[Rfam]
RNA sequence: GUUUCAGUCCCCUUGCGGGGAAAUGGUCGUGAAAGAC
Numbered sequence: 001g002u003u004u005c006a007g008u009c010c011c012c013u014u015g016c017g018g019g020g021a022a023a024u025g026g027u028c029g030u031g032a033a034a035g036a037c
Stems, first nucleotide, its partner, number of pairs: 005026001008021005
Shown here is a 37-nucleotide RNA from Pegethrix bostrychoides, a member of the family "CRISPR RNA direct repeat element". The organism belongs to Pegethrix bostrychoides, within Bacteria.